Rfam assigns this 128-nucleotide part of an RNA from Armadillidium nasatum to the family "Eukaryotic small subunit ribosomal RNA".
RNA sequence: GAAAGUUAGAGGAUCGAAGGCGAUCAGAUACCGCCCUAGUUCUAACCAUAAACGAUGCCAACUAGCGAUCCGUCGGCGUCAUUCCCACGACUCGACGGGGAGCCCCAGGGAAACCAAAGUCUUUGGGU
Numbered sequence: 001g002a003a004a005g006u007u008a009g010a011g012g013a014u015c016g017a018a019g020g021c022g023a024u025c026a027g028a029u030a031c032c033g034c035c036c037u038a039g040u041u042c043u044a045a046c047c048a049u050a051a052a053c054g055a056u057g058c059c060a061a062c063u064a065g066c067g068a069u070c071c072g073u074c075g076g077c078g079u080c081a082u083u084c085c086c087a088c089g090a091c092u093c094g095a096c097g098g099g100g101a102g103c104c105c106c107a108g109g110g111a112a113a114c115c116a117a118a119g120u121c122u123u124u125g126g127g128u
Base pairs, nucleotide, nucleotide: 005046006045007044008043009042010041015039019035020034021033022032057128058127059126061120062119065103066102069099070098071097072096073095074094075093076092078091079090080089108115109114

Background
Clan: SSU clan. The match comes from Rfam's covariance-model search (1585 bits). The source organism's lineage runs through Eukaryota, Opisthokonta, Metazoa, Crinocheta and Armadillidium.